RNA sequence: AUCCUAGUGCAUGGGUAUUACGCAUAUCAGUGAGGAUUCGUCCGAGAUUGCGUAUUUGCUAGUUGAAAACUAUAACCAUGACCGCUCUUAAUCUGCUUCGGCAGGUUAAGGAAUUUUUGAGAAAUAACAACAUUGU
Number, nucleotide and partner (000 for none) at each position: 001a000002u000003c000004c000005u000006a000007g000008u000009g000010c000011a000012u000013g000014g000015g000016u000017a000018u000019u000020a053021c052022g051023c050024a049025u000026a048027u047028c046029a000030g000031u000032g000033a000034g043035g042036a041037u000038u000039c000040g000041u036042c035043c034044g000045a000046g028047a027048u026049u024050g023051c022052g021053u020054a000055u000056u000057u000058g000059c000060u000061a000062g000063u000064u000065g000066a000067a000068a000069a000070c000071u000072a000073u000074a000075a000076c000077c000078a000079u000080g000081a000082c000083c000084g000085c000086u111087c110088u109089u108090a107091a106092u105093c104094u103095g102096c101097u000098u000099c000100g000101g096102c095103a094104g093105g092106u091107u090108a089109a088110g087111g086112a000113a000114u000115u000116u000117u000118u000119g000120a000121g000122a000123a000124a136125u135126a134127a133128c000129a000130a000131c000132a000133u127134u126135g125136u124

Shown here is a 136-nucleotide RNA sequence from Erysiphe necator, a member of the family "U4 spliceosomal RNA". For this family Rfam cites "Mechanism of 5' splice site transfer for human spliceosome activation" (Charenton et al., Science, 2019). Clan: U4 clan. NCBI's taxonomy places the organism under Eukaryota, Fungi, Dikarya, Pezizomycotina, Erysiphe. By type it is a spliceosomal small nuclear RNA.